This 407-nucleotide RNA from Cricetulus griseus belongs to the Rfam family "Small Cajal body-specific RNA 2".
It is annotated as a small Cajal body RNA.
For this family Rfam cites "Guide RNAs with 5' caps and novel box C/D snoRNA-like domains for modification of snRNAs in metazoa" (Tycowski et al., Curr Biol, 2004).
The match comes from Rfam's covariance-model search (339 bits).
Lineage of the source: Eukaryota > Opisthokonta > Dipnotetrapodomorpha > Theria > Cricetulus.
Pairs were carried over by alignment from the consensus structure, which is taken from published work.
Nucleotides: 407
Base pairs, nucleotide, nucleotide: 050153051152052151053150054149056070057069058068059067060066088101093098104141105140106139109136110135111134112133113132115130116129180228181227182226185220186219187218188217191214192213194212197211198210199209201207202206250307251306252305253304255303256302257301258300260299261298262297265296266295268293269292270291273288274287275286276284310327311326312325313324314322315321316320332406333405334404335403342399343398344397345396346395347394361379362378363377366374367373
Number, partner (000 for none) and nucleotide at each position: 001000c002000c003000u004000c005000g006000c007000g008000a009000g010000u011000g012000g013000g014000a015000g016000c017000g018000c019000g020000g021000c022000c023000g024000g025000g026000g027000u028000u029000g030000a031000g032000g033000a034000c035000a036000g037000a038000g039000c040000u041000g042000u043000u044000g045000a046000g047000u048000g049000u050153g051152g052151u053150g054149u055000g056070g057069c058068g059067u060066g061000c062000a063000u064000g065000g066060u067059a068058c069057g070056u071000g072000u073000g074000g075000g076000c077000u078000g079000a080000c081000u082000g083000u084000g085000a086000g087000c088101g089000u090000g091000g092000g093098u094000g095000u096000g097000g098093g099000a100000g101088u102000g103000c104141g105140u106139g107000u108000g109136c110135g111134c112133g113132c114000g115130u116129g117000g118000g119000g120000c121000g122000a123000g124000c125000a126000a127000g128000g129116c130115g131000a132113g133112u134111g135110u136109g137000u138000g139106u140105g141104u142000c143000c144000g145000c146000c147000c148000c149054g150053c151052g152051c153050c154000c155000c156000u157000c158000c159000c160000c161000c162000g163000c164000c165000u166000a167000c168000a169000c170000c171000u172000u173000g174000a175000u176000c177000u178000u179000a180228u181227u182226u183000g184000a185220u186219c187218g188217g189000g190000u191214c192213g193000u194212g195000a196000c197211c198210c199209c200000c201207g202206c203000c204000c205000c206202g207201c208000c209199g210198g211197g212194c213192c214191g215000c216000c217188c218187c219186g220185a221000a222000a223000u224000g225000a226182a227181a228180a229000g230000c231000a232000g233000c234000c235000c236000u237000c238000c239000u240000g241000c242000g243000a244000a245000g246000c247000c248000c249000c250307u251306c252305u253304g254000c255303g256302g257301g258300g259000c260299g261298c262297u263000g264000u265296g266295c267000a268293g269292c270291g271000a272000g273288g274287c275286c276284c277000a278000u279000g280000g281000g282000c283000g284276g285000u286275g287274g288273c289000a290000g291270u292269g293268c294000c295266g296265c297262g298261g299260c300258u301257c302256c303255c304253c305252a306251g307250g308000u309000c310327u311326c312325g313324g314322u315321c316320c317000u318000g319000c320316g321315g322314g323000c324313c325312c326311g327310g328000u329000g330000c331000u332406c333405a334404g335403a336000a337000g338000u339000g340000a341000u342399g343398a344397a345396u346395u347394g348000a349000u350000c351000a352000g353000a354000u355000a356000g357000a358000c359000g360000a361379g362378g363377c364000c365000g366374g367373g368000c369000c370000u371000g372000u373367c374366c375000c376000a377363g378362c379361c380000g381000c382000u383000g384000a385000u386000u387000a388000c389000c390000g391000a392000g393000g394347c395346g396345a397344u398343u399342c400000u401000g402000a403335u404334c405333u406332g407000a